[Rfam]
The record is an 87-nucleotide RNA from Microcaecilia unicolor, which matches "mir-15 microRNA precursor family" in Rfam. On this family, see Lagos-Quintana et al., Science 2001: "Identification of novel genes coding for small expressed RNAs". Rfam 15.1 lists 2,045 matches to the family in 649 species. From the family's description: This family represents the related mir-15a and mir-15b sequences. In humans miR-15a and miR-16 are clustered within 0.5 kb at 13q14. This region has been shown to be deleted in more than half of B cell chronic lymphocytic leukaemias (CLL). Both miR-15a and miR-16 are deleted or down-regulated in more than two thirds of CLL cases. Clan: mir-15 clan.

RNA sequence: UCGAACAAAGGUGUAGCAGUACGAAAAUGCUUGUAGCUUCAAAAGGAAAAGCUACAAGCGUUUUCGUACUGCUACACCUUUGUUCGA
Dot-bracket structure: ((((((......((((((((((((.(((((((((((...............))))))))))).))))))))))))......))))))